[Rfam]
RNA sequence: GAAGUAUCGGCAACACCAUGCAGGUGGGGUUGCCAAACCACUCUACGCUGCAAACGCUGUAAAGCUGCUGUGGUGAACGGAUAGAGAAAAGGUGAGAAAGACUCAUCAGGU
Numbered sequence: 001g002a003a004g005u006a007u008c009g010g011c012a013a014c015a016c017c018a019u020g021c022a023g024g025u026g027g028g029g030u031u032g033c034c035a036a037a038c039c040a041c042u043c044u045a046c047g048c049u050g051c052a053a054a055c056g057c058u059g060u061a062a063a064g065c066u067g068c069u070g071u072g073g074u075g076a077a078c079g080g081a082u083a084g085a086g087a088a089a090a091g092g093u094g095a096g097a098a099a100g101a102c103u104c105a106u107c108a109g110g111u
Base pairs, nucleotide, nucleotide: 009034010033011032012031013030014029016027017026018025019024039110041086042085043084044083045082046080047074048073050071051070052069056065057064091107092106093105094104095103096102
Source information
The family of this 111-nucleotide RNA from Candidatus Scalindua japonica is "Group II catalytic intron D1-D4-2". For this family Rfam cites "The ins and outs of group II introns" (Bonen and Vogel, Trends Genet, 2001). The pairing is the family consensus, mapped onto this sequence. The organism belongs to Candidatus Scalindua, within Bacteria. It scores 70 bits against the family's covariance model. Rfam's curators write: Group II introns are found in rRNA, tRNA and mRNA of organelles in fungi, plants and protists, and also in mRNA in bacteria.